[Rfam]
RNA sequence: GGAGUUGGUCAGGCGAUCGCUGCUUCGUUGAUGUCCUUAGGGAGACUGACGGAGGGGAGGAAAGUCCGGGCUCCAAAGGGCAGGGUGCCAGAUAACGUCUGGGGGGCGCGAGCCCACGACAAGUGCAGCAGAGAGUAUACCGCCGAUGACUCGCUUGCGAGAACAGGUAAGGGUGAAAGGGUGCGGUAAGAGCGCACCGCGCGGCUAGUAAUAGUUCGUGGCAUGGUAAACUCCACCCGGAGCAAGACCAAAUAGGUCCCUAAUGGCGCGGCCCGCGUUGGGGACGGGUAGGUUGCUUGAGCCUGUGAGCGAUUGCAGGCCUAGAGGAAUGGUUGCCACUGCGAAAGCAGCUACAAAACCCGGCUUAUAGACCAACUCCACCU
Numbered sequence: 001g002g003a004g005u006u007g008g009u010c011a012g013g014c015g016a017u018c019g020c021u022g023c024u025u026c027g028u029u030g031a032u033g034u035c036c037u038u039a040g041g042g043a044g045a046c047u048g049a050c051g052g053a054g055g056g057g058a059g060g061a062a063a064g065u066c067c068g069g070g071c072u073c074c075a076a077a078g079g080g081c082a083g084g085g086u087g088c089c090a091g092a093u094a095a096c097g098u099c100u101g102g103g104g105g106g107c108g109c110g111a112g113c114c115c116a117c118g119a120c121a122a123g124u125g126c127a128g129c130a131g132a133g134a135g136u137a138u139a140c141c142g143c144c145g146a147u148g149a150c151u152c153g154c155u156u157g158c159g160a161g162a163a164c165a166g167g168u169a170a171g172g173g174u175g176a177a178a179g180g181g182u183g184c185g186g187u188a189a190g191a192g193c194g195c196a197c198c199g200c201g202c203g204g205c206u207a208g209u210a211a212u213a214g215u216u217c218g219u220g221g222c223a224u225g226g227u228a229a230a231c232u233c234c235a236c237c238c239g240g241a242g243c244a245a246g247a248c249c250a251a252a253u254a255g256g257u258c259c260c261u262a263a264u265g266g267c268g269c270g271g272c273c274c275g276c277g278u279u280g281g282g283g284a285c286g287g288g289u290a291g292g293u294u295g296c297u298u299g300a301g302c303c304u305g306u307g308a309g310c311g312a313u314u315g316c317a318g319g320c321c322u323a324g325a326g327g328a329a330u331g332g333u334u335g336c337c338a339c340u341g342c343g344a345a346a347g348c349a350g351c352u353a354c355a356a357a358a359c360c361c362g363g364c365u366u367a368u369a370g371a372c373c374a375a376c377u378c379c380a381c382c383u
Stems, first nucleotide, its partner, number of pairs: 001379010011368001012337007020057002023054008062366003066363005071242004078274004083238005088102005103117001104115004118233002123231002125227002140172002142168003148164001150161004180198006199222001200220005205214003246294004256285006265279005301320008
Rfam assigns this 383-nucleotide RNA sequence from Photobacterium profundum to the family "Bacterial RNase P class A".
Rfam's curators write: Ribonuclease P (RNase P) is a ubiquitous endoribonuclease, found in archaea, bacteria and eukarya as well as chloroplasts and mitochondria.
It is annotated as a ribozyme.
Lineage of the source: Bacteria > Pseudomonadati > Pseudomonadota > Vibrionaceae > Photobacterium.